Rfam assigns this 70-nucleotide RNA sequence from Oryza brachyantha to the family "Small nucleolar RNA Z163/Z177 family". The literature on the family includes a 2003 paper in Nucleic Acids Res by Chen et al., "The high diversity of snoRNAs in plants: identification and comparative study of 120 snoRNA genes from Oryza sativa".
RNA sequence: UGGCCAGUGAUGAACCAUGACUUGUACCCUCCGAGUAAAAUGAGGUGCACUGACUCUCUUUCUGAGGCCA
Numbered sequence: 001u002g003g004c005c006a007g008u009g010a011u012g013a014a015c016c017a018u019g020a021c022u023u024g025u026a027c028c029c030u031c032c033g034a035g036u037a038a039a040a041u042g043a044g045g046u047g048c049a050c051u052g053a054c055u056c057u058c059u060u061u062c063u064g065a066g067g068c069c070a
Stems, first nucleotide, its partner, number of pairs: 001070005